Record summary:
A member of the RNA family "Plastid-psbA-3 3UTR RNA" from Musa troglodytarum, 58 nucleotides long. The literature on the family includes a 2023 paper in Plant Commun by Richter et al., "Retrograde signaling in plants: A critical review focusing on the GUN pathway and beyond". Plastid psbA-3 is a non-coding RNA (ncRNA) present in plastids. It was identified in inverted repeat sequences in the 3 prime untranslate region (3UTR) of photosystem II quinone-binding protein (psbA). Its Rfam clan is "Plastid-psbA 3UTR RNA clan". By type it is a cis-regulatory element. The base pairs follow the family's consensus structure, which was predicted with LocARNA.

[Rfam]
RNA sequence: AAAGUAGCAAUACCCCGUAUCUUGUUUUAGCAAGAUAUGGGGUAUUGCUACUUUGUUU
Numbered sequence: 001a002a003a004g005u006a007g008c009a010a011u012a013c014c015c016c017g018u019a020u021c022u023u024g025u026u027u028u029a030g031c032a033a034g035a036u037a038u039g040g041g042g043u044a045u046u047g048c049u050a051c052u053u054u055g056u057u058u
Stems, first nucleotide, its partner, number of pairs: 001054014019036006